Record summary:
The record is a 116-nucleotide sequence from Cupriavidus pinatubonensis, which matches "Guanidine-I riboswitch aptamer" in Rfam. Rfam links the family to the GO term regulation of gene expression. It is one of the family's seed sequences. The pairing is the family consensus, mapped onto this sequence. The organism belongs to Cupriavidus pinatubonensis, within Bacteria.

RNA sequence: CCGAAGGGUCGCUAGGGUUCCGGUCGCGCUGCGCGCGAUGUCUGGUCCAAGAGCAACCGGCCUCAGGCGCGCUCGACCGCGUCCAGGCUCCACGGCGGGACAAAAGCCCGGGAGGU
Numbered sequence: 001c002c003g004a005a006g007g008g009u010c011g012c013u014a015g016g017g018u019u020c021c022g023g024u025c026g027c028g029c030u031g032c033g034c035g036c037g038a039u040g041u042c043u044g045g046u047c048c049a050a051g052a053g054c055a056a057c058c059g060g061c062c063u064c065a066g067g068c069g070c071g072c073u074c075g076a077c078c079g080c081g082u083c084c085a086g087g088c089u090c091c092a093c094g095g096c097g098g099g100a101c102a103a104a105a106g107c108c109c110g111g112g113a114g115g116u
Stems, first nucleotide, its partner, number of pairs: 007058003011054002015048002020045002022042001023039006059089005066082001091111001093114001097109003